Source information
The record is a 166-nucleotide RNA from Osedax symbiont Rs2, which matches "FMN riboswitch aptamer (RFN element)" in Rfam. The base pairs follow the family's consensus structure, which is taken from published work. The source organism's lineage runs through Bacteria, Pseudomonadota, Gammaproteobacteria, Oceanospirillales and Oceanospirillaceae.

RNA sequence: UUUAAUUCUCAGGGCGGGGCGCAAUUCCCCACCGGCGGUAAUCCUCACUGAUAACAGUGAAGAGAGCCCGCGAGCGCUUAUUUGGCAUUUUUUAGUGUCAUUAAGGUCAGCAGAUCUGGUUAAAUUCCAGAGCCGACGGUUACAGUCCGGAUGGAAGAGAAUAAAC
Numbered sequence: 001u002u003u004a005a006u007u008c009u010c011a012g013g014g015c016g017g018g019g020c021g022c023a024a025u026u027c028c029c030c031a032c033c034g035g036c037g038g039u040a041a042u043c044c045u046c047a048c049u050g051a052u053a054a055c056a057g058u059g060a061a062g063a064g065a066g067c068c069c070g071c072g073a074g075c076g077c078u079u080a081u082u083u084g085g086c087a088u089u090u091u092u093u094a095g096u097g098u099c100a101u102u103a104a105g106g107u108c109a110g111c112a113g114a115u116c117u118g119g120u121u122a123a124a125u126u127c128c129a130g131a132g133c134c135g136a137c138g139g140u141u142a143c144a145g146u147c148c149g150g151a152u153g154g155a156a157g158a159g160a161a162u163a164a165a166c
Base pairs, nucleotide, nucleotide: 003164005162006161007160008159009158010157017029018028019027031146032145033135034134035071036070037069038068066133067132074111075110115131116130117129118128119127137149138148139147